[Rfam]
RNA sequence: AUACCCCAUGGUGCUCAGGUCCGCCGCAUCUCCUGGGUCUUGGGGCUGGUCGAUCGGCGACGCAUUGAACGGUUCCUCGUACUGUCAGUGCUGUCCCGGUCGACCCACUU
Number, nucleotide and partner (000 for none) at each position: 001a000002u000003a000004c045005c044006c043007c042008a041009u000010g039011g000012u000013g000014c037015u036016c035017a034018g033019g032020u000021c000022c000023g000024c000025c000026g000027c000028a000029u000030c000031u000032c019033c018034u017035g016036g015037g014038u000039c010040u000041u008042g007043g006044g005045g004046c000047u000048g105049g104050u103051c102052g101053a100054u099055c098056g097057g096058c000059g000060a000061c000062g000063c000064a000065u000066u000067g000068a000069a000070c000071g000072g000073u000074u000075c000076c000077u000078c000079g000080u000081a000082c000083u000084g000085u000086c000087a000088g000089u000090g000091c000092u000093g000094u000095c000096c057097c056098g055099g054100u053101c052102g051103a050104c049105c048106c000107a000108c000109u000110u000
Rfam assigns this 110-nucleotide RNA from Agrobacterium bohemicum to the family "EcpR1". NCBI's taxonomy places the organism under Bacteria, Pseudomonadati, Alphaproteobacteria, Hyphomicrobiales, Agrobacterium. Rfam's curators write: Perviously named SmelC291, SmrC10, or Sra33. The base pairs follow the family's consensus structure, which was predicted with WAR. By type it is a small RNA. The literature on the family includes a 2012 paper in RNA Biol by Wilms et al., "Deep sequencing uncovers numerous small RNAs on all four replicons of the plant pathogen Agrobacterium tumefaciens".